Notes:
Shown here is a 266-nucleotide RNA sequence from Erysipelotrichaceae bacterium 5_2_54FAA, a member of the family "Group I catalytic intron". A search with the family's covariance model found it, with a score of 68 bits. The source organism's lineage runs through Bacteria, Bacillati, Bacillota, Erysipelotrichales and Erysipelotrichaceae. Rfam links the family to the GO term Group I intron splicing. Rfam describes the family as follows. Group I catalytic introns are large self-splicing ribozymes. They catalyse their own excision from mRNA, tRNA and rRNA precursors in a wide range of organisms. The core secondary structure consists of 9 paired regions (P1-P9).
RNA sequence: CAAGAACCAUUAACUAUUUAGUGGCUUUACACCGUAAGGUGUAUCGAAUAACAUCGUGAACGCAUGCAAAAGCGGCGUGGUAGCAAUAAGUUACUGCUAACAGGGAAACUCUUAGUGAUAAGACAAUCCUGUGCCAAGCCUAUAUAUAAUAGGAAGGUGCAAUGACUAUUCCUUGAGGAAGUACAACGGAGAUUAGCACCGUUGGAAGUGCGAUGGAUGCUAGAAAUAGCAUUGUGAUAUAGUCUGAUCUCUAUGGUGACAUAGAG
Number, nucleotide and partner (000 for none) at each position: 001c000002a000003a000004g000005a026006a000007c024008c023009a022010u021011u020012a019013a018014c000015u000016a000017u000018u013019u012020a011021g010022u009023g008024g007025c000026u005027u000028u000029a000030c041031a040032c039033c000034g000035u000036a000037a000038g000039g032040u031041g030042u000043a000044u000045c000046g000047a000048a000049u000050a000051a000052c000053a000054u000055c000056g000057u000058g000059a000060a000061c000062g000063c000064a000065u000066g000067c000068a000069a000070a000071a000072g000073c000074g000075g000076c000077g000078u000079g000080g000081u000082a000083g000084c000085a000086a000087u000088a000089a000090g000091u000092u000093a214094c000095u212096g000097c000098u000099a000100a132101c131102a130103g129104g128105g127106a000107a000108a000109c000110u123111c122112u121113u120114a119115g000116u000117g000118a000119u114120a113121a112122g111123a110124c000125a000126a000127u105128c104129c103130u102131g101132u100133g158134c157135c000136a000137a000138g000139c152140c000141u000142a000143u000144a000145u000146a000147u000148a000149a000150u000151a000152g139153g000154a000155a000156g000157g134158u133159g000160c000161a000162a245163u000164g244165a243166c242167u241168a240169u000170u000171c000172c000173u000174u000175g000176a000177g000178g000179a000180a000181g000182u000183a000184c000185a000186a000187c000188g000189g000190a000191g000192a000193u000194u000195a000196g000197c000198a000199c000200c000201g000202u000203u000204g000205g000206a000207a000208g000209u000210g000211c000212g095213a000214u093215g000216g000217a000218u231219g230220c229221u228222a227223g000224a000225a000226a000227u222228a221229g220230c219231a218232u000233u000234g000235u000236g000237a000238u000239a000240u168241a167242g166243u165244c164245u162246g000247a000248u000249c000250u000251c264252u263253a262254u261255g260256g000257u000258g000259a000260c255261a254262u253263a252264g251265a000266g000